[Rfam]
RNA sequence: AUUUCCGACAGCAAGAUGCCCGACAUGCAGGCGGGCUGGGAGCAGGCGAUCACCAACACCCUGGCCGGGCUUUCCGGGCUGAACAUGGUCUAUGAGGCGG
Number, nucleotide and partner (000 for none) at each position: 001a000002u000003u000004u000005c000006c000007g000008a000009c000010a000011g000012c000013a000014a000015g000016a000017u000018g000019c000020c000021c000022g000023a000024c000025a000026u000027g000028c000029a000030g000031g000032c000033g062034g061035g060036c000037u000038g000039g000040g000041a000042g000043c000044a000045g000046g000047c000048g000049a000050u000051c000052a000053c000054c000055a000056a000057c000058a000059c000060c035061c034062u033063g000064g000065c000066c000067g000068g000069g000070c000071u000072u000073u000074c000075c000076g000077g098078g000079c096080u095081g000082a000083a000084c000085a000086u000087g000088g000089u000090c000091u000092a000093u000094g000095a080096g079097g000098c077099g000100g000
The family of this 100-nucleotide sequence from Rhodobacter ferrooxidans is "Pyrrolysine insertion sequence mttB". It scores 54 bits against the family's covariance model. The literature on the family includes a 2013 paper in BMC Bioinformatics by Theil Have et al., "Effects of using coding potential, sequence conservation and mRNA structure conservation for predicting pyrroly-sine containing genes".